[Rfam]
RNA sequence: UUGGCAUGAUGAGGAAAACCGAUGUUUUCGGAUCUAUUUGAUGAUAAAUUCCUUCUACUCAUUCUGA
Numbered sequence: 001u002u003g004g005c006a007u008g009a010u011g012a013g014g015a016a017a018a019c020c021g022a023u024g025u026u027u028u029c030g031g032a033u034c035u036a037u038u039u040g041a042u043g044a045u046a047a048a049u050u051c052c053u054u055c056u057a058c059u060c061a062u063u064c065u066g067a
Base pairs, nucleotide, nucleotide: 006062007061008060009059025046029040
Dot-bracket structure: .....((((...............(...(..........).....)............)))).....
Record summary:
Shown here is a 67-nucleotide sequence from Oryza glumipatula, a member of the family "Small nucleolar RNA Z105". By type it is a C/D-box small nucleolar RNA. The source organism's lineage runs through Eukaryota, Euphyllophyta, Spermatophyta, Poaceae and Oryza. A reference for the family is Chen et al. (2003), "The high diversity of snoRNAs in plants: identification and comparative study of 120 snoRNA genes from Oryza sativa", Nucleic Acids Res. It scores 59 bits against the family's covariance model.